[Rfam]
RNA: ZMP/ZTP riboswitch aptamer (pfl RNA motif)
RNA sequence: UAGUAGUUAUACGACUGACGGAAGUGGAAUAGACCACAUGAAGUAUAAUUGUAUGAAGCCGACCGUCUGGGCAAAAGAA
Numbered sequence: 001u002a003g004u005a006g007u008u009a010u011a012c013g014a015c016u017g018a019c020g021g022a023a024g025u026g027g028a029a030u031a032g033a034c035c036a037c038a039u040g041a042a043g044u045a046u047a048a049u050u051g052u053a054u055g056a057a058g059c060c061g062a063c064c065g066u067c068u069g070g071g072c073a074a075a076a077g078a079a
Stems, first nucleotide, its partner, number of pairs: 003052010015040001017067005024037004058072003